[Rfam]
The record is a 93-nucleotide RNA sequence from Microcebus murinus, which matches "NoRC associated RNA, pRNA" in Rfam. Rfam links the family to the GO term chromatin remodeling. Rfam classes the family as a non-coding RNA gene. The organism belongs to Microcebus, within Eukaryota. It is one of the family's seed sequences. For this family Rfam cites "The structure of NoRC-associated RNA is crucial for targeting the chromatin remodelling complex NoRC to the nucleolus" (Mayer et al., EMBO Rep, 2008).
RNA sequence: GCACUGGGGACGUGUUGGGGACAGGUGGCCGCGUCUGGGUUCGUGGUGGUCGGCGUGGUCAAGUGGCUCUUCCACGGCUCCCUCGCCGUGUUU
Numbered sequence: 001g002c003a004c005u006g007g008g009g010a011c012g013u014g015u016u017g018g019g020g021a022c023a024g025g026u027g028g029c030c031g032c033g034u035c036u037g038g039g040u041u042c043g044u045g046g047u048g049g050u051c052g053g054c055g056u057g058g059u060c061a062a063g064u065g066g067c068u069c070u071u072c073c074a075c076g077g078c079u080c081c082c083u084c085g086c087c088g089u090g091u092u093u
Stems, first nucleotide, its partner, number of pairs: 004090001008087002011085002018082004027067001029065001030063001032057003036053001